RNA sequence: ACUUAUCGAAGCGCUGCACCUCCUCCCGCGGCGCCCGAUGCGGAUCGGUGGCACUCCUCCUCCCAGUCACCGGUCAAGUUUGAGAGCCCCGUGCACCUCCUCCCGCGCGGGGCUCUUUUC
Numbered sequence: 001a002c003u004u005a006u007c008g009a010a011g012c013g014c015u016g017c018a019c020c021u022c023c024u025c026c027c028g029c030g031g032c033g034c035c036c037g038a039u040g041c042g043g044a045u046c047g048g049u050g051g052c053a054c055u056c057c058u059c060c061u062c063c064c065a066g067u068c069a070c071c072g073g074u075c076a077a078g079u080u081u082g083a084g085a086g087c088c089c090c091g092u093g094c095a096c097c098u099c100c101u102c103c104c105g106c107g108c109g110g111g112g113c114u115c116u117u118u119u120c
Base pairs, nucleotide, nucleotide: 007037008036011034012033013032014031015030016029017028043075044074045073046072047071048070049069050068051067052066084115085114086113087112088111089110090109091108092107093106094105